[Rfam]
A member of the RNA family "Group II catalytic intron D1-D4-3" from Cyclobacterium marinum, 169 nucleotides long. Its family is annotated with Group II intron splicing in the Gene Ontology. A reference for the family is Bonen and Vogel (2001), "The ins and outs of group II introns", Trends Genet. The source organism's lineage runs through Bacteria, Pseudomonadati, Bacteroidota, Cyclobacteriaceae and Cyclobacterium marinum. Rfam's curators write: Group II introns are found in rRNA, tRNA and mRNA of organelles in fungi, plants and protists, and also in mRNA in bacteria. The pairing is the family consensus, mapped onto this sequence.
RNA sequence: UCGUUUGUGACUGCAAAUCUGAAAGAAGCUGGAGUUAAUUUUCGAGCCUAUGAACAGAAACUUCAUAUUAGACGGAUAUGUGUGGGUGAUGUUGCAAAAGAAAUAAAAGCCCAAUACUGCACAGAACACAUAAUCGUAAAUGGAGAGGCUACAAGAGUAGAAGGCGAAU
Numbered sequence: 001u002c003g004u005u006u007g008u009g010a011c012u013g014c015a016a017a018u019c020u021g022a023a024a025g026a027a028g029c030u031g032g033a034g035u036u037a038a039u040u041u042u043c044g045a046g047c048c049u050a051u052g053a054a055c056a057g058a059a060a061c062u063u064c065a066u067a068u069u070a071g072a073c074g075g076a077u078a079u080g081u082g083u084g085g086g087u088g089a090u091g092u093u094g095c096a097a098a099a100g101a102a103a104u105a106a107a108a109g110c111c112c113a114a115u116a117c118u119g120c121a122c123a124g125a126a127c128a129c130a131u132a133a134u135c136g137u138a139a140a141u142g143g144a145g146a147g148g149c150u151a152c153a154a155g156a157g158u159a160g161a162a163g164g165c166g167a168a169u
Stems, first nucleotide, its partner, number of pairs: 001016001003014002031169001034165002039159001041157003045150005061145006072137003077132006084112004090105004